[Rfam]
RNA sequence: CCAGAUCUCUAUCGUUUCUUACGGUAAAGAGAAACCAGCCGUACUGGGCCACGACGAAUCAGCGUAUGCUAAAAACCGUCGUGCAGUACUGGUUUACUAAGAGAAUCACAUGAUUAGUAGCUGCAGAACUCAUCUCCUG
Numbered sequence: 001c002c003a004g005a006u007c008u009c010u011a012u013c014g015u016u017u018c019u020u021a022c023g024g025u026a027a028a029g030a031g032a033a034a035c036c037a038g039c040c041g042u043a044c045u046g047g048g049c050c051a052c053g054a055c056g057a058a059u060c061a062g063c064g065u066a067u068g069c070u071a072a073a074a075a076c077c078g079u080c081g082u083g084c085a086g087u088a089c090u091g092g093u094u095u096a097c098u099a100a101g102a103g104a105a106u107c108a109c110a111u112g113a114u115u116a117g118u119a120g121c122u123g124c125a126g127a128a129c130u131c132a133u134c135u136c137c138u139g
Stems, first nucleotide, its partner, number of pairs: 001047004007041001014035007054138001057135001062130001065127001067125002075118002078115001079113005086106002089103002
CpoB/ybgF ICR thermometer: a 139-nucleotide RNA sequence from Erwinia sp. Leaf53. The base pairs follow the family's consensus structure. NCBI's taxonomy places the organism under Bacteria, Pseudomonadota, Enterobacterales, Erwiniaceae, Erwinia. Its family is annotated with response to temperature stimulus and regulation of translation in the Gene Ontology. Rfam's curators write: Imprinting control region from upstream of cpoB/ybgF (tol/pal system protein). The literature on the family includes a 2016 paper in Proc Natl Acad Sci U S A by Righetti et al., "Temperature-responsive in vitro RNA structurome of Yersinia pseudotuberculosis". It scores 125 bits against the family's covariance model.